RNA sequence: CCAAAAAUAAAAAGAAUCGUCUGAAGCGAGGAACAAAUUAAAAUGUAAAUUUUAGUUGUUACCGAGUGGAAGAUGAUUACUUUUUAACCUAUGUGUAUAUACACAUAG
Numbered sequence: 001c002c003a004a005a006a007a008u009a010a011a012a013a014g015a016a017u018c019g020u021c022u023g024a025a026g027c028g029a030g031g032a033a034c035a036a037a038u039u040a041a042a043a044u045g046u047a048a049a050u051u052u053u054a055g056u057u058g059u060u061a062c063c064g065a066g067u068g069g070a071a072g073a074u075g076a077u078u079a080c081u082u083u084u085u086a087a088c089c090u091a092u093g094u095g096u097a098u099a100u101a102c103a104c105a106u107a108g
Base pairs, nucleotide, nucleotide: 008086009085010084011083012082013081014080015078016077017076018075019074020073021072022071026067027066030063031062032060033059034058035057038054040052041051042050044048089108090107091106092105093104094103095102096101
A member of the RNA family "lactis-plasmid RNA" from Lactococcus hircilactis, 108 nucleotides long. It scores 99 bits against the family's covariance model. Pairs were carried over by alignment from the consensus structure, which is taken from published work. The organism belongs to Lactococcus, within Bacteria.